RNA: Group II catalytic intron D1-D4-3
RNA sequence: UUAUUGGCUAACGAUAGGGUCUGAAGUAAGCCAUAGAAAGUCAGAGGUACAUAACAUAAGUAAACCUGCUUCGGCGGUGUUGGUGGGUAAGCGUCCAAAAUAGCGCGAAGCCCGAUACUUAGUUAGACCAAUACUGUGCUUGAGGGUGGUAUUUCUAACAGGGAGUC
Numbered sequence: 001u002u003a004u005u006g007g008c009u010a011a012c013g014a015u016a017g018g019g020u021c022u023g024a025a026g027u028a029a030g031c032c033a034u035a036g037a038a039a040g041u042c043a044g045a046g047g048u049a050c051a052u053a054a055c056a057u058a059a060g061u062a063a064a065c066c067u068g069c070u071u072c073g074g075c076g077g078u079g080u081u082g083g084u085g086g087g088u089a090a091g092c093g094u095c096c097a098a099a100a101u102a103g104c105g106c107g108a109a110g111c112c113c114g115a116u117a118c119u120u121a122g123u124u125a126g127a128c129c130a131a132u133a134c135u136g137u138g139c140u141u142g143a144g145g146g147u148g149g150u151a152u153u154u155c156u157a158a159c160a161g162g163g164a165g166u167c
Base pairs, nucleotide, nucleotide: 001017002016003015004014005013006012040159041158043156044155045154046150048148049147050146065145066144067143074137075136076135078133079132080131081130082129083128084127085113086112087111088110091106092105093104094103